[Rfam]
c-di-GMP-I riboswitch aptamer: an 86-nucleotide sequence from Bacillus sp. MRMR6.
The base pairs follow the family's consensus structure, which is taken from published work.
RNA sequence: UCUCGAUAAAGGCAAAACUGAUGAAAAUCAGUGACGCAAAGCUAUAGGGGCUAAGGUGCAUAGCACGAUGCCAGCCAGCUACCGAA
Numbered sequence: 001u002c003u004c005g006a007u008a009a010a011g012g013c014a015a016a017a018c019u020g021a022u023g024a025a026a027a028u029c030a031g032u033g034a035c036g037c038a039a040a041g042c043u044a045u046a047g048g049g050g051c052u053a054a055g056g057u058g059c060a061u062a063g064c065a066c067g068a069u070g071c072c073a074g075c076c077a078g079c080u081a082c083c084g085a086a
Stems, first nucleotide, its partner, number of pairs: 012037002017032006040080004047076002049072003056066004